Glycine riboswitch aptamer: a 96-nucleotide RNA sequence from Limnobacter sp. MED105. The organism belongs to Limnobacter, within Bacteria.

[Rfam]
RNA sequence: GAAGCUGAAUCUGGAGAGUGGCUGGUGCGUAUCUGUGCUGGCCCGCCGAAGGCGCAAUCCCCAUGAACGCUCAGGCUUCAGUACAGGUUCAGAACG
Number, nucleotide and partner (000 for none) at each position: 001g000002a000003a000004g000005c000006u091007g090008a089009a088010u087011c086012u085013g084014g000015a000016g000017a000018g000019u000020g043021g042022c041023u040024g039025g038026u037027g036028c000029g000030u000031a000032u000033c000034u000035g000036u027037g026038c025039u024040g023041g022042c021043c020044c000045g076046c075047c074048g072049a071050a000051g000052g070053c069054g068055c000056a000057a000058u063059c000060c000061c000062c000063a058064u000065g000066a000067a000068c054069g053070c052071u049072c048073a000074g047075g046076c045077u000078u000079c000080a000081g000082u000083a000084c013085a012086g011087g010088u009089u008090c007091a006092g000093a000094a000095c000096g000